[Rfam]
RNA sequence: UGAAAUGAUAGAGGUGCGAUAUUCAUCAGUACUCCGGGACAAGUGGCAGGACAGUCGUUUUGGAGAAAAGGGAAGAUCGCCGAAGAGUAUAUUCCGGUCCAUGGAAUUAGCUCUGGGACGCAGCAGAAUAUGUUGCGGACUGUCACUGAUAUGUGGAGCGCUAUCUGAAGU
Numbered sequence: 001u002g003a004a005a006u007g008a009u010a011g012a013g014g015u016g017c018g019a020u021a022u023u024c025a026u027c028a029g030u031a032c033u034c035c036g037g038g039a040c041a042a043g044u045g046g047c048a049g050g051a052c053a054g055u056c057g058u059u060u061u062g063g064a065g066a067a068a069a070g071g072g073a074a075g076a077u078c079g080c081c082g083a084a085g086a087g088u089a090u091a092u093u094c095c096g097g098u099c100c101a102u103g104g105a106a107u108u109a110g111c112u113c114u115g116g117g118a119c120g121c122a123g124c125a126g127a128a129u130a131u132g133u134u135g136c137g138g139a140c141u142g143u144c145a146c147u148g149a150u151a152u153g154u155g156g157a158g159c160g161c162u163a164u165c166u167g168a169a170g171u
Stems, first nucleotide, its partner, number of pairs: 007165005016080005022074003032065008084114005091107005115141002119137007143156004